[Rfam]
RNA: mir-26 microRNA precursor family
RNA sequence: CCUCUGCCUGGUUCAAGUAAUCCAGGAUAGGCUGGUUAACACUGGCACGGCCUAUUCUUGAUUACUUGUUUCAGGAACCGG
Numbered sequence: 001c002c003u004c005u006g007c008c009u010g011g012u013u014c015a016a017g018u019a020a021u022c023c024a025g026g027a028u029a030g031g032c033u034g035g036u037u038a039a040c041a042c043u044g045g046c047a048c049g050g051c052c053u054a055u056u057c058u059u060g061a062u063u064a065c066u067u068g069u070u071u072c073a074g075g076a077a078c079c080g081g
Base pairs, nucleotide, nucleotide: 002080005077007075008074009073010072011071014068015067016066017065018064019063020062021061022060024058025057026056027055028054029053030052031051032050033049